Rfam assigns this 102-nucleotide sequence from Vibrio ostreae to the family "traJ-II RNA". It is annotated as a cis-regulatory element. It scores 88 bits against the family's covariance model.
RNA sequence: GGGCAGGAUAGGUGAAGUGGUCCCCCCGACAAGUCGGCGGUUACCACUUCACUUCCCUUAUUCGCGCCAGGGCGCUCAACGGUAAUCCUGCCCUGCGGGGCC
Numbered sequence: 001g002g003g004c005a006g007g008a009u010a011g012g013u014g015a016a017g018u019g020g021u022c023c024c025c026c027c028g029a030c031a032a033g034u035c036g037g038c039g040g041u042u043a044c045c046a047c048u049u050c051a052c053u054u055c056c057c058u059u060a061u062u063c064g065c066g067c068c069a070g071g072g073c074g075c076u077c078a079a080c081g082g083u084a085a086u087c088c089u090g091c092c093c094u095g096c097g098g099g100g101c102c
Base pairs, nucleotide, nucleotide: 001093002092003091004090005089006088007087008086009085012052013051014050015049016048017047019045020044021043024040025039026037027036028035029034054084056082057081064075065074066073067072